[Rfam]
RNA sequence: UAGUAGAUGCACCCUGAUACUACCCCCAGUCUUUAUAGGCUAGGGGUUUUAUUA
Numbered sequence: 001u002a003g004u005a006g007a008u009g010c011a012c013c014c015u016g017a018u019a020c021u022a023c024c025c026c027c028a029g030u031c032u033u034u035a036u037a038g039g040c041u042a043g044g045g046g047u048u049u050u051a052u053u054a
Stems, first nucleotide, its partner, number of pairs: 003012002023046004028041005

Shown here is a 54-nucleotide sequence from Symplocastrum torsivum, a member of the family "Nitrogen stress-induced RNA 1".
The literature on the family includes a 2010 paper in J Mol Biol by Ionescu et al., "Heterocyst-specific transcription of NsiR1, a non-coding RNA encoded in a tandem array of direct repeats in cyanobacteria".
Pairs were carried over by alignment from the consensus structure.
It scores 47 bits against the family's covariance model.
The family's RNA type in Rfam is small RNA.